[Rfam]
RNA sequence: AUACUUAUUGGCAGGGGAGACACCAUGAUCAGGAGCUGGUUUUCUCAGGGUGAGGCUUAUCCCCAGAGCUCUGGGUGUGCCAACCACUGUGAUCACCCCAAAUGCAGGAAAGUUGACUGCAUAAUUUGUGGGAGUGGUAAUUUUUAUUCAUUUAUUUCAU
Numbered sequence: 001a002u003a004c005u006u007a008u009u010g011g012c013a014g015g016g017g018a019g020a021c022a023c024c025a026u027g028a029u030c031a032g033g034a035g036c037u038g039g040u041u042u043u044c045u046c047a048g049g050g051u052g053a054g055g056c057u058u059a060u061c062c063c064c065a066g067a068g069c070u071c072u073g074g075g076u077g078u079g080c081c082a083a084c085c086a087c088u089g090u091g092a093u094c095a096c097c098c099c100a101a102a103u104g105c106a107g108g109a110a111a112g113u114u115g116a117c118u119g120c121a122u123a124a125u126u127u128g129u130g131g132g133a134g135u136g137g138u139a140a141u142u143u144u145u146a147u148u149c150a151u152u153u154a155u156u157u158c159a160u
Base pairs, nucleotide, nucleotide: 011120012119013118014117015046016045017044018043019042020041022040023039024038025037047088048087050085052084054081055080056079058077059076060075061074062073090115091114092113093111097107135159136158137157139155141154145150
U1 spliceosomal RNA: a 160-nucleotide RNA sequence from Coturnix japonica. On this family, see Katsamba et al., J Biol Chem 2001: "Two functionally distinct steps mediate high affinity binding of U1A protein to U1 hairpin II RNA". The match comes from Rfam's covariance-model search (71 bits). The family's RNA type in Rfam is spliceosomal small nuclear RNA.